[Rfam]
RNA sequence: CACCAGGGUGGCUAGGGUUCCGGCCGGUCGAUGCAGACCGGUGUCUGGUCCGAGAGCCACCGGCCUCAAGGCCCGGAGCGUUGACGCGCUUCGACGGACCUCAGGCUCCACGGCGGGACAAAAGCCCGGGAGGA
Numbered sequence: 001c002a003c004c005a006g007g008g009u010g011g012c013u014a015g016g017g018u019u020c021c022g023g024c025c026g027g028u029c030g031a032u033g034c035a036g037a038c039c040g041g042u043g044u045c046u047g048g049u050c051c052g053a054g055a056g057c058c059a060c061c062g063g064c065c066u067c068a069a070g071g072c073c074c075g076g077a078g079c080g081u082u083g084a085c086g087c088g089c090u091u092c093g094a095c096g097g098a099c100c101u102c103a104g105g106c107u108c109c110a111c112g113g114c115g116g117g118a119c120a121a122a123a124g125c126c127c128g129g130g131a132g133g134a
Base pairs, nucleotide, nucleotide: 007061008060009059010058011057012056015051016050020048021047022045023042024041025040026039027038028037062107063106064105065104066103109129111132115127116126117125
The record is a 134-nucleotide sequence from Sphaerotilus mobilis, which matches "Guanidine-I riboswitch aptamer" in Rfam. Its family is annotated with regulation of gene expression in the Gene Ontology.